[Rfam]
RNA sequence: UCAUAAGCCGCUCCGGACAAUUGGAAACGAUGAAACAUUGUGCGGAGC
Numbered sequence: 001u002c003a004u005a006a007g008c009c010g011c012u013c014c015g016g017a018c019a020a021u022u023g024g025a026a027a028c029g030a031u032g033a034a035a036c037a038u039u040g041u042g043c044g045g046a047g048c
Stems, first nucleotide, its partner, number of pairs: 011047005017041003